RNA: Small nucleolar RNA snoR136
Organism: Aegilops tauschii
RNA sequence: UCUGCUUCUCUUAACAGUAUUCGUGCCCGUGAAUUAACUUGCAUGGUUCCCGGGGAAUAAGGAGAUUGGUAGCAGAAAACAAUGUUCCUCUCGCUAUCCAGUGCGGAAUUUCUUGUGUUGCGAUUGGACGUCGAGGAACUACAUUU
Numbered sequence: 001u002c003u004g005c006u007u008c009u010c011u012u013a014a015c016a017g018u019a020u021u022c023g024u025g026c027c028c029g030u031g032a033a034u035u036a037a038c039u040u041g042c043a044u045g046g047u048u049c050c051c052g053g054g055g056a057a058u059a060a061g062g063a064g065a066u067u068g069g070u071a072g073c074a075g076a077a078a079a080c081a082a083u084g085u086u087c088c089u090c091u092c093g094c095u096a097u098c099c100a101g102u103g104c105g106g107a108a109u110u111u112c113u114u115g116u117g118u119u120g121c122g123a124u125u126g127g128a129c130g131u132c133g134a135g136g137a138a139c140u141a142c143a144u145u146u
Base pairs, nucleotide, nucleotide: 002064003063005061006060007059011057012056015053022052023051025049026046027045029044030043031042084139085138086137087136088135089134090133092130093129097128098127099126100125101124106118108116